[Rfam]
RNA sequence: UACGACACUCAUCAAAGAGGUUGUUCCCUAUCCAGAUGCUACUUUAUCAUAUUCUGAAUUC
Numbered sequence: 001u002a003c004g005a006c007a008c009u010c011a012u013c014a015a016a017g018a019g020g021u022u023g024u025u026c027c028c029u030a031u032c033c034a035g036a037u038g039c040u041a042c043u044u045u046a047u048c049a050u051a052u053u054c055u056g057a058a059u060u061c
Base pairs, nucleotide, nucleotide: 017045018044019043020042021041023039024038027035